A member of the RNA family "U7 small nuclear RNA" from Myotis myotis, 63 nucleotides long.
The family's consensus secondary structure was predicted with PFOLD.
On this family, see Spycher et al., Nucleic Acids Res 1994: "3' end processing of mouse histone pre-mRNA: evidence for additional base-pairing between U7 snRNA and pre-mRNA".
RNA sequence: AAGUUCUUACAGCUCUUUUUGAAUUUGUCCAGCAGGUCUUCCAGCUUUCACCGGAAGGCCCUA
Numbered sequence: 001a002a003g004u005u006c007u008u009a010c011a012g013c014u015c016u017u018u019u020u021g022a023a024u025u026u027g028u029c030c031a032g033c034a035g036g037u038c039u040u041c042c043a044g045c046u047u048u049c050a051c052c053g054g055a056a057g058g059c060c061c062u063a
Stems, first nucleotide, its partner, number of pairs: 035060008044051001